Bacterial small signal recognition particle RNA: a 100-nucleotide sequence from Planctomicrobium piriforme. The family's consensus secondary structure is taken from published work. Rfam describes the family as follows. The signal recognition particle (SRP) is a universally conserved ribonucleoprotein involved in the co-translational targeting of proteins to membranes. A search with the family's covariance model found it, with a score of 55 bits. Rfam classes the family as a non-coding RNA gene. Its family is annotated with SRP-dependent cotranslational protein targeting to membrane, signal sequence recognition and signal recognition particle, plasma membrane targeting in the Gene Ontology. The source organism's lineage runs through Bacteria, Pseudomonadati, Planctomycetia, Planctomycetaceae and Planctomicrobium.
[Rfam]
RNA sequence: AAGCGAUCUCCCGCACGGUGGGACCGUGCGAACCAGGUCAGGCGGGAAACCGAGCAGCCUUAAGCAUCGCGUUACCAGGUGUGCCGGGAGAUCGCUUUCU
Numbered sequence: 001a002a003g004c005g006a007u008c009u010c011c012c013g014c015a016c017g018g019u020g021g022g023a024c025c026g027u028g029c030g031a032a033c034c035a036g037g038u039c040a041g042g043c044g045g046g047a048a049a050c051c052g053a054g055c056a057g058c059c060u061u062a063a064g065c066a067u068c069g070c071g072u073u074a075c076c077a078g079g080u081g082u083g084c085c086g087g088g089a090g091a092u093c094g095c096u097u098u099c100u
Base pairs, nucleotide, nucleotide: 004094005093006092007091008090010087011086013084014083015082016079019077020076021075023073024069026067027066028065029064035060036059037058038057043052044051045050